[Rfam]
RNA sequence: AAAAUUCUUCGGGGUUGGGUGAAGCGAAGCAGUUCGUCAUUCCCUACCGGCGGUAACAGUCCGCGACCCGUUUUGAUGUAUAUCGAAGCGGUUGAUUUGGUGCAAUUCCAAAACCGACAGUAAAGUCUGGAUGAGAGAAGAAAUGU
Numbered sequence: 001a002a003a004a005u006u007c008u009u010c011g012g013g014g015u016u017g018g019g020u021g022a023a024g025c026g027a028a029g030c031a032g033u034u035c036g037u038c039a040u041u042c043c044c045u046a047c048c049g050g051c052g053g054u055a056a057c058a059g060u061c062c063g064c065g066a067c068c069c070g071u072u073u074u075g076a077u078g079u080a081u082a083u084c085g086a087a088g089c090g091g092u093u094g095a096u097u098u099g100g101u102g103c104a105a106u107u108c109c110a111a112a113a114c115c116g117a118c119a120g121u122a123a124a125g126u127c128u129g130g131a132u133g134a135g136a137g138a139a140g141a142a143a144u145g146u
Stems, first nucleotide, its partner, number of pairs: 003144001005142006017044003046126002048116002050064004059114002068091004096112005118129003
Overview:
Shown here is a 146-nucleotide RNA sequence from Kineothrix alysoides, a member of the family "FMN riboswitch aptamer (RFN element)". The source organism's lineage runs through Bacteria, Bacillati, Bacillota, Lachnospiraceae and Kineothrix. It scores 106 bits against the family's covariance model. Rfam links the family to the GO term FMN binding. Rfam's curators write: The RFN element is a highly conserved domain that is found frequently in the 5'-untranslated regions of prokaryotic mRNAs that encode for flavin mononucleotide (FMN) biosynthesis and transport proteins.